RNA sequence: ACCUCCAGUGCCUACUGAGCUGAUAACAGUUUUACCUGAAACAAGUACUGGCUCAGUUCAGCAGGAACCGGAGUU
Numbered sequence: 001a002c003c004u005c006c007a008g009u010g011c012c013u014a015c016u017g018a019g020c021u022g023a024u025a026a027c028a029g030u031u032u033u034a035c036c037u038g039a040a041a042c043a044a045g046u047a048c049u050g051g052c053u054c055a056g057u058u059c060a061g062c063a064g065g066a067a068c069c070g071g072a073g074u075u
Stems, first nucleotide, its partner, number of pairs: 003073004008068002011065003015061009027050004
Dot-bracket structure: ..((((.((.(((.(((((((((...((((................))))..))))))))).))).)).))))..
Overview: mir-24 microRNA precursor family: a 75-nucleotide sequence from Oryzias latipes. NCBI's taxonomy places the organism under Eukaryota, Chordata, Actinopterygii, Euacanthomorphacea, Oryzias. Rfam describes the family as follows. This family represents the microRNA (miRNA) mir-24 family. miRNAs are transcribed as ~70nt precursors (modelled here) and subsequently processed by the Dicer enzyme to give a ~22nt product. In this case the mature sequence comes from the 3' arm of the precursor. The extents of the hairpin precursors are not generally known and are estimated based on hairpin prediction. It is one of the family's seed sequences. Gene Ontology terms of the family: RISC complex and miRNA-mediated post-transcriptional gene silencing. The literature on the family includes a 2001 paper in Science by Lagos-Quintana et al., "Identification of novel genes coding for small expressed RNAs".